[Rfam]
RNA sequence: UUAACUUUAUCUACAGUCUAUUUUUUAUAAAUGCUAGUGAUUAAACGAUUUCAUUGAUACGGGAGUGUGGUGCUAGUUAUGAAGAUAAAUAAAAUUAUCGAAUAUAUUGUAGUAGCAAUCAUCGUUUUGGGGUGGACUUACUUCAUUGUCAUUAAAGAAAUUCUCCCUAAAAAUAUAGGAUUUAUUUCAUUAGUAAUUCUAUCAAUAGUUCUUUAUUUUGUAGGUAAAUGGUUGAAUGGAAAACAUAGCACAUAAAA
Numbered sequence: 001u002u003a004a005c006u007u008u009a010u011c012u013a014c015a016g017u018c019u020a021u022u023u024u025u026u027a028u029a030a031a032u033g034c035u036a037g038u039g040a041u042u043a044a045a046c047g048a049u050u051u052c053a054u055u056g057a058u059a060c061g062g063g064a065g066u067g068u069g070g071u072g073c074u075a076g077u078u079a080u081g082a083a084g085a086u087a088a089a090u091a092a093a094a095u096u097a098u099c100g101a102a103u104a105u106a107u108u109g110u111a112g113u114a115g116c117a118a119u120c121a122u123c124g125u126u127u128u129g130g131g132g133u134g135g136a137c138u139u140a141c142u143u144c145a146u147u148g149u150c151a152u153u154a155a156a157g158a159a160a161u162u163c164u165c166c167c168u169a170a171a172a173a174u175a176u177a178g179g180a181u182u183u184a185u186u187u188c189a190u191u192a193g194u195a196a197u198u199c200u201a202u203c204a205a206u207a208g209u210u211c212u213u214u215a216u217u218u219u220g221u222a223g224g225u226a227a228a229u230g231g232u233u234g235a236a237u238g239g240a241a242a243a244c245a246u247a248g249c250a251c252a253u254a255a256a257a
Stems, first nucleotide, its partner, number of pairs: 017240007025231002028228001032226004059077002062074002065071001089221007100211004105207005110201003124137004151194005157188005166179004

Rfam assigns this 257-nucleotide sequence from Listeria monocytogenes to the family "Listeria sRNA rli37".
The match comes from Rfam's covariance-model search (236 bits).
A reference for the family is Toledo-Arana et al. (2009), "The Listeria transcriptional landscape from saprophytism to virulence", Nature.